RNA: MIR531 microRNA precursor family
RNA sequence: CCGAGCUCCGCUCGCCGGAGUUGCGUGCCGCAAACGCCGGCGCGUAGCUUCGUCGAGCGCUGCUCGACG
Numbered sequence: 001c002c003g004a005g006c007u008c009c010g011c012u013c014g015c016c017g018g019a020g021u022u023g024c025g026u027g028c029c030g031c032a033a034a035c036g037c038c039g040g041c042g043c044g045u046a047g048c049u050u051c052g053u054c055g056a057g058c059g060c061u062g063c064u065c066g067a068c069g
Base pairs, nucleotide, nucleotide: 002066003065004064005063006062009059010058011057012056013055014054016052017051018050019049020048022046023045024044025043026042027041028040029039030037031036